[Rfam]
RNA sequence: GGCGAUAAACGCGCCCGUAAUAAACGGAUCGGACCCGGGGGCGGUACCCGGCGGCUCCACCAUACUUCCCUCAUUGGCGGGAUCAUGGGGCCGAAACAGGAUCGACGGACGUCUAAAGGGGUUUGCUUUUGCCCGGUGAGGUACCACCGUUAUCGGUCCAAGCAUGAUAGUUGCCAAUGACAACCGUGCUCCGGUGGCCGUUGCCGCGUAA
Numbered sequence: 001g002g003c004g005a006u007a008a009a010c011g012c013g014c015c016c017g018u019a020a021u022a023a024a025c026g027g028a029u030c031g032g033a034c035c036c037g038g039g040g041g042c043g044g045u046a047c048c049c050g051g052c053g054g055c056u057c058c059a060c061c062a063u064a065c066u067u068c069c070c071u072c073a074u075u076g077g078c079g080g081g082a083u084c085a086u087g088g089g090g091c092c093g094a095a096a097c098a099g100g101a102u103c104g105a106c107g108g109a110c111g112u113c114u115a116a117a118g119g120g121g122u123u124u125g126c127u128u129u130u131g132c133c134c135g136g137u138g139a140g141g142u143a144c145c146a147c148c149g150u151u152a153u154c155g156g157u158c159c160a161a162g163c164a165u166g167a168u169a170g171u172u173g174c175c176a177a178u179g180a181c182a183a184c185c186g187u188g189c190u191c192c193g194g195u196g197g198c199c200g201u202u203g204c205c206g207c208g209u210a211a
Stems, first nucleotide, its partner, number of pairs: 001133005013122004025111002029108003035051005052093007134149004